[Rfam]
RNA sequence: CUUCCAUCCUUCCCGCACAGAAGGAUGGAGCGAGGCCGGGGCGCUCUCUGCCCUGACUGCGCCAGGCCUCAUGGUCGGCUCUCACGGGCCGCGGGAACCGCACACCCGCGCGCCACGGGCCGACGGCAGCUCCGGGCUGCGGUGCUGGGCGGGUUGAGGGUCCCGUCCCGGCGC
Numbered sequence: 001c002u003u004c005c006a007u008c009c010u011u012c013c014c015g016c017a018c019a020g021a022a023g024g025a026u027g028g029a030g031c032g033a034g035g036c037c038g039g040g041g042c043g044c045u046c047u048c049u050g051c052c053c054u055g056a057c058u059g060c061g062c063c064a065g066g067c068c069u070c071a072u073g074g075u076c077g078g079c080u081c082u083c084a085c086g087g088g089c090c091g092c093g094g095g096a097a098c099c100g101c102a103c104a105c106c107c108g109c110g111c112g113c114c115a116c117g118g119g120c121c122g123a124c125g126g127c128a129g130c131u132c133c134g135g136g137c138u139g140c141g142g143u144g145c146u147g148g149g150c151g152g153g154u155u156g157a158g159g160g161u162c163c164c165g166u167c168c169c170g171g172c173g174c
Stems, first nucleotide, its partner, number of pairs: 003029004008024005032070005040063002043060002045056002075123007129143003133139002147168007

Record summary: This 174-nucleotide RNA from Actinacidiphila glaucinigra belongs to the Rfam family "Streptomyces sRNA scr5239". By type it is a small RNA. Pairs were carried over by alignment from the consensus structure, which is taken from published work. For this family Rfam cites "Identification of metE as a second target of the sRNA scr5239 in Streptomyces coelicolor" (Vockenhuber et al., PLoS One, 2015).